Source information
The family of this 101-nucleotide RNA sequence from Clostridium niameyense is "Glycine riboswitch aptamer". A search with the family's covariance model found it, with a score of 65 bits.
RNA sequence: GGACGGGCCUCUGGAGAGACUCUAAAAAGAGCACCGAAGGAGCAAGUUUGUAAGUUAUAUUUACAAAUGAAACUCUCAGGUAAAAGGACAGGGGAAGGGUU
Numbered sequence: 001g002g003a004c005g006g007g008c009c010u011c012u013g014g015a016g017a018g019a020c021u022c023u024a025a026a027a028a029g030a031g032c033a034c035c036g037a038a039g040g041a042g043c044a045a046g047u048u049u050g051u052a053a054g055u056u057a058u059a060u061u062u063a064c065a066a067a068u069g070a071a072a073c074u075c076u077c078a079g080g081u082a083a084a085a086g087g088a089c090a091g092g093g094g095a096a097g098g099g100u101u
Stems, first nucleotide, its partner, number of pairs: 008094006020031004033081003036077002040075003046068010